[Rfam]
CRISPR RNA direct repeat element: a 37-nucleotide sequence from Candidatus Nitrospira nitrificans. The family's consensus secondary structure was predicted with WAR. Gene Ontology term of the family: defense response. Lineage of the source: Bacteria > Nitrospiria > Nitrospirales > Nitrospiraceae > Nitrospira.

RNA sequence: GUAGCGCCCGCUCGAAAGGGCGGGCGAGGAUUGAAAC
Numbered sequence: 001g002u003a004g005c006g007c008c009c010g011c012u013c014g015a016a017a018g019g020g021c022g023g024g025c026g027a028g029g030a031u032u033g034a035a036a037c
Stems, first nucleotide, its partner, number of pairs: 005026009